The record is an 81-nucleotide sequence from Allobosea lathyri, which matches "Makes More Granules Regulator RNA (mmgR)" in Rfam. Its family is annotated with response to nitrogen compound, DNA-templated transcription, termination and protein binding in the Gene Ontology. It is annotated as a small RNA. A reference for the family is Valverde et al. (2008), "Prediction of Sinorhizobium meliloti sRNA genes and experimental detection in strain 2011", BMC Genomics. Taxonomically the source falls in Allobosea (Bacteria, Pseudomonadota, Alphaproteobacteria, Hyphomicrobiales).

RNA sequence: GGGGGCGGCCCUCCUUGGGCGUUUCCUCCCUAAACCUGGGCCGGUCAUCCUUCGGGAUGGCUGGCCUUUUUUCGUUUGAGG
Numbered sequence: 001g002g003g004g005g006c007g008g009c010c011c012u013c014c015u016u017g018g019g020c021g022u023u024u025c026c027u028c029c030c031u032a033a034a035c036c037u038g039g040g041c042c043g044g045u046c047a048u049c050c051u052u053c054g055g056g057a058u059g060g061c062u063g064g065c066c067u068u069u070u071u072u073c074g075u076u077u078g079a080g081g
Stems, first nucleotide, its partner, number of pairs: 008020004039066011
The family has 87 seed sequences and 1,791 matches in Rfam 15.1.